Shown here is an 87-nucleotide RNA from Equus caballus, a member of the family "mir-9014 microRNA precursor family". Pairs were carried over by alignment from the consensus structure, which was predicted with RNAalifold. The source organism's lineage runs through Eukaryota, Metazoa, Chordata, Sarcopterygii and Equus. Its family is annotated with RISC complex and miRNA-mediated post-transcriptional gene silencing in the Gene Ontology. The match comes from Rfam's covariance-model search (81 bits).
RNA sequence: GGAGCCAUAGGGAGGGACCCAACUCAGCCUUAGGAAGAGAAACCUUCCAUGGGAGUCUUGGAGCUUGGCGACUGUCCUAAUGACUUA
Numbered sequence: 001g002g003a004g005c006c007a008u009a010g011g012g013a014g015g016g017a018c019c020c021a022a023c024u025c026a027g028c029c030u031u032a033g034g035a036a037g038a039g040a041a042a043c044c045u046u047c048c049a050u051g052g053g054a055g056u057c058u059u060g061g062a063g064c065u066u067g068g069c070g071a072c073u074g075u076c077c078u079a080a081u082g083a084c085u086u087a
Stems, first nucleotide, its partner, number of pairs: 002086003006082003010078004015073002018070001019068004024063001028061002037059004043053003
Dot-bracket structure: .(((.(((.((((.((.(((((.(...((.......((((..(((.....)))..)))))).).)))).).)).)))).))).))).